The family of this 205-nucleotide RNA from Prodigiosinella confusarubida is "GlmZ RNA activator of glmS mRNA".
On this family, see Reichenbach et al., Nucleic Acids Res 2008: "The small RNA GlmY acts upstream of the sRNA GlmZ in the activation of glmS expression and is subject to regulation by polyadenylation in Escherichia coli".
A search with the family's covariance model found it, with a score of 174 bits.
Pairs were carried over by alignment from the consensus structure, which is taken from published work.
Rfam describes the family as follows. This RNA was discovered in E. coli during a large scale screen. The sraJ gene was expressed in early logarithmic phase, but its level decreased with cell growth. Specific cleavage products of this RNA were found. Identified in Yersinia pseudotuberculosis as Ysr248/153/sR016.
NCBI's taxonomy places the organism under Bacteria, Pseudomonadati, Pseudomonadota, Enterobacterales, Prodigiosinella.
Nucleotides: 205
Base pairs, nucleotide, nucleotide: 001063002062006059007058008057009055010054011053012052015050017049019042027035029033071143072142073141074140075139076138077137081123082122083121084120093109094108095107151161152160153159174200175199176198177197178196179195180194181193182192183191184190
Number, partner (000 for none) and nucleotide at each position: 001063g002062u003000a004000g005000a006059u007058g008057c009055u010054c011053a012052u013000u014000c015050c016000a017049c018000c019042u020000u021000c022000u023000a024000u025000g026000u027035u028000u029033g030000c031000u032000c033029c034000g035027g036000c037000u038000u039000c040000a041000u042019a043000a044000a045000c046000c047000u048000g049017g050015g051000a052012a053011u054010g055009a056000c057008g058007c059006a060000g061000a062002g063001c064000c065000g066000u067000u068000u069000a070000c071143g072142g073141u074140g075139c076138u077137u078000a079000u080000c081123g082122u083121c084120c085000a086000a087000c088000a089000c090000c091000a092000u093109a094108u095107g096000a097000a098000g099000g100000a101000u102000a103000u104000c105000u106000u107095c108094a109093u110000u111000g112000g113000a114000c115000u116000u117000u118000u119000c120084g121083g122082a123081c124000a125000u126000g127000a128000c129000g130000u131000u132000g133000a134000g135000u136000g137077a138076g139075g140074c141073a142072c143071c144000a145000c146000a147000a148000a149000u150000u151161g152160u153159c154000u155000u156000a157000u158000a159153g160152a161151c162000c163000u164000g165000a166000u167000u168000u169000u170000a171000u172000u173000u174200a175199a176198c177197g178196c179195u180194u181193g182192u183191c184190g185000u186000u187000u188000a189000u190184c191183g192182g193181c194180a195179a196178g197177c198176g199175u200174u201000u202000u203000u204000u205000u